[Rfam]
The record is a 124-nucleotide RNA from Caenorhabditis japonica, which matches "Small nucleolar RNA U6-47" in Rfam. Rfam links the family to the GO terms RNA processing and nucleolus. It scores 77 bits against the family's covariance model. The family's consensus secondary structure was predicted with WAR.
RNA sequence: UUGCAAUGAUGAGCUAGAAUCACGAAAAUGUCGUUUAUCGCUGAAUUAAAAGACCGACUUCCUUCGUUCGGAAGUCGUGUCGAUCGGCGGAAUGGACGAGCGUCUAAUCUUCUCUCUGAGCAAG
Number, nucleotide and partner (000 for none) at each position: 001u123002u122003g121004c120005a000006a000007u000008g000009a000010u000011g000012a000013g000014c000015u000016a000017g000018a000019a000020u000021c000022a000023c000024g000025a000026a000027a000028a000029u000030g000031u000032c000033g000034u000035u000036u000037a000038u000039c000040g000041c000042u000043g000044a000045a000046u000047u000048a000049a000050a000051a000052g000053a000054c000055c000056g000057a000058c000059u000060u000061c000062c000063u000064u000065c000066g000067u000068u000069c000070g000071g000072a000073a000074g000075u000076c000077g000078u000079g000080u000081c000082g000083a000084u000085c000086g000087g000088c000089g000090g000091a000092a000093u000094g000095g000096a000097c000098g000099a000100g000101c000102g000103u000104c000105u000106a000107a000108u000109c000110u000111u000112c000113u000114c000115u000116c000117u000118g000119a000120g004121c003122a002123a001124g000